[Rfam]
Nucleotides: 171
Stems, first nucleotide, its partner, number of pairs: 001016006028171001032167001035164002040158006046149005062144006073136003077132007086111003091105004
Number, partner (000 for none) and nucleotide at each position: 001016u002015c003014c004013a005012u006011u007000u008000u009000g010000a011006g012005g013004u014003g015002g016001a017000g018000u019000c020000u021000g022000a023000a024000g025000a026000a027000a028171g029000c030000c031000u032167a033000a034000u035164g036163c037000a038000a039000a040158c041157u042156c043155u044154c045153g046149g047148c048147u049146u050145g051000a052000c053000a054000a055000a056000c057000a058000a059000a060000a061000a062144u063143c064142a065141c066140a067139u068000a069000u070000a071000a072000g073136g074135u075134a076000g077132u078131g079130c080129g081128a082127a083126g084000c085000g086111g087110a088109c089000g090000a091105g092104c093103u094102u095000g096000a097000g098000c099000a100000c101000a102094a103093a104092g105091u106000a107000a108000a109088g110087u111086c112000a113000a114000a115000u116000c117000c118000u119000g120000u121000c122000c123000g124000a125000a126083u127082u128081u129080u130079g131078c132077g133000g134075u135074g136073u137000a138000a139067g140066u141065g142064u143063g144062g145050c146049a147048a148047g149046u150000a151000g152000a153045u154044g155043a156042g157041a158040g159000g160000a161000a162000a163036g164035u165000c166000a167032u168000u169000a170000u171028u
Shown here is a 171-nucleotide sequence from Peptostreptococcaceae bacterium AS15, a member of the family "Group II catalytic intron D1-D4-3". Rfam's curators write: Group II introns are found in rRNA, tRNA and mRNA of organelles in fungi, plants and protists, and also in mRNA in bacteria. The pairing is the family consensus, mapped onto this sequence.